[Rfam]
RNA sequence: CAGCACGGAGGGGGCGAUCGAUGCGCGGUCCGCGUCCCGGCCGCCGGGACCGCGCGGAGCCACUGGCGAGACCGACCAUCCACCG
Numbered sequence: 001c002a003g004c005a006c007g008g009a010g011g012g013g014g015c016g017a018u019c020g021a022u023g024c025g026c027g028g029u030c031c032g033c034g035u036c037c038c039g040g041c042c043g044c045c046g047g048g049a050c051c052g053c054g055c056g057g058a059g060c061c062a063c064u065g066g067c068g069a070g071a072c073c074g075a076c077c078a079u080c081c082a083c084c085g
Stems, first nucleotide, its partner, number of pairs: 003084001007080002010077002013061003023055008039073002042068004
The family of this 85-nucleotide RNA is "c-di-GMP-II-GAG riboswitch aptamer". It is one of the family's seed sequences. For this family Rfam cites "Bioinformatic analysis of riboswitch structures uncovers variant classes with altered ligand specificity" (Weinberg et al., Proc Natl Acad Sci U S A, 2017). Rfam links the family to the GO terms regulation of gene expression and cyclic-di-GMP binding.